About this RNA
The record is an 89-nucleotide sequence from Gallus gallus, which matches "mir-15 microRNA precursor family" in Rfam. The base pairs follow the family's consensus structure, which was predicted with RNAalifold. Rfam describes the family as follows. This family represents the related mir-15a and mir-15b sequences. In humans miR-15a and miR-16 are clustered within 0.5 kb at 13q14. This region has been shown to be deleted in more than half of B cell chronic lymphocytic leukaemias (CLL). Both miR-15a and miR-16 are deleted or down-regulated in more than two thirds of CLL cases. The mature sequence is excised from the 5' arm of the hairpin. The source organism's lineage runs through Eukaryota, Bilateria, Gnathostomata, Archelosauria and Gallus. Its family is annotated with miRNA-mediated post-transcriptional gene silencing and RISC complex in the Gene Ontology. Its Rfam clan is "mir-15 clan".
RNA sequence: ACUUGUUCCGCCCUAGCAGCACGUAAAUAUUGGUGUAGUAAAAUAAACCUUAAACCCCAAUAUUAUUGUGCUGCUUAAGCGUGGCAGAG
Numbered sequence: 001a002c003u004u005g006u007u008c009c010g011c012c013c014u015a016g017c018a019g020c021a022c023g024u025a026a027a028u029a030u031u032g033g034u035g036u037a038g039u040a041a042a043a044u045a046a047a048c049c050u051u052a053a054a055c056c057c058c059a060a061u062a063u064u065a066u067u068g069u070g071c072u073g074c075u076u077a078a079g080c081g082u083g084g085c086a087g088a089g
Stems, first nucleotide, its partner, number of pairs: 003087004015075009026064008035055002